The record is a 75-nucleotide RNA sequence from Methylobacterium sp. Leaf99, which matches "Makes More Granules Regulator RNA (mmgR)" in Rfam.
[Rfam]
RNA sequence: UUCGGCAGCCCUUUUUGGGCGUUUCCUCCCUAGACUUCGGGCCGCUCUUCGGAGCGGCCUUUUUUUCUGGGAACG
Numbered sequence: 001u002u003c004g005g006c007a008g009c010c011c012u013u014u015u016u017g018g019g020c021g022u023u024u025c026c027u028c029c030c031u032a033g034a035c036u037u038c039g040g041g042c043c044g045c046u047c048u049u050c051g052g053a054g055c056g057g058c059c060u061u062u063u064u065u066u067c068u069g070g071g072a073a074c075g
Stems, first nucleotide, its partner, number of pairs: 008020004039060009

The match comes from Rfam's covariance-model search (72 bits). The base pairs follow the family's consensus structure. The family's RNA type in Rfam is small RNA. Clan: suhB sRNA clan.